[Rfam]
RNA sequence: CUUCACCGAGCCCAGCCACAGCGGCCGGCCCUCUGGCCGCCCCUGCCCGUAGGCGGAGGCGAGCGCGCCGGCCUC
Numbered sequence: 001c002u003u004c005a006c007c008g009a010g011c012c013c014a015g016c017c018a019c020a021g022c023g024g025c026c027g028g029c030c031c032u033c034u035g036g037c038c039g040c041c042c043c044u045g046c047c048c049g050u051a052g053g054c055g056g057a058g059g060c061g062a063g064c065g066c067g068c069c070g071g072c073c074u075c
Base pairs, nucleotide, nucleotide: 015025016024017023031071032070038065039064044059047056048055049054
Source information: Rfam assigns this 75-nucleotide RNA sequence from Streptomyces mobaraensis to the family "ASpks TB sRNA". The source organism's lineage runs through Bacteria, Actinomycetota, Kitasatosporales, Streptomycetaceae and Streptomyces. The match comes from Rfam's covariance-model search (54 bits). The family's RNA type in Rfam is antisense RNA.